[Rfam]
RNA sequence: GCUCCACCGCUGUCGGGGAACCGCGCCAAUUUUCGCUUCAGUGCUAGACCAUCCAAAGUGUCUAUCACCGGGUGAAAAUUCGCAUGGGUCCCCGACGCGGAA
Dot-bracket structure: ...............((((.((..((.((((((((((.(.(((.((................)).))).))))))))))).))..)).))))..........

A member of the RNA family "mir-36 microRNA precursor family" from Caenorhabditis elegans, 102 nucleotides long.
The source organism's lineage runs through Eukaryota, Opisthokonta, Metazoa, Protostomia and Caenorhabditis.
The family has 46 seed sequences and 199 matches in Rfam 15.1.
Rfam's curators put it in the seed alignment.
The family is grouped with related families in Rfam's "mir-36 clan".
For this family Rfam cites "Patterns of flanking sequence conservation and a characteristic upstream motif for microRNA gene identification" (Ohler et al., RNA, 2004).
Its family is annotated with RISC complex and miRNA-mediated post-transcriptional gene silencing in the Gene Ontology.